[Rfam]
About this RNA: The family of this 130-nucleotide RNA sequence from Tetrahymena elliotti is "Tetrahymena snoRNA TtnuHACA21". The sequence is in the family's curated seed alignment. For this family Rfam cites "Experimental identification and analysis of macronuclear non-coding RNAs from the ciliate Tetrahymena thermophila" (Andersen and Nielsen, Nucleic Acids Res, 2012). The family's RNA type in Rfam is H/ACA-box small nucleolar RNA.
RNA sequence: AUUCCCUUUAGUGUUGCCGCUAUGACAUAAAUAGUUGAAGUGGAGUCAAACAAGGGAUAAAGAGAAAUGGGGUAUUCAAGAUAUACUCUCCUAAUACUAUGGAGAACUAUAUAGCUAUACCUGAAUAUUU
Dot-bracket structure: ..((((((...((...(((((.((((.......)))).)))))...))...))))))............((((((.....(((((.(((((.........)))))..)))))....))))))........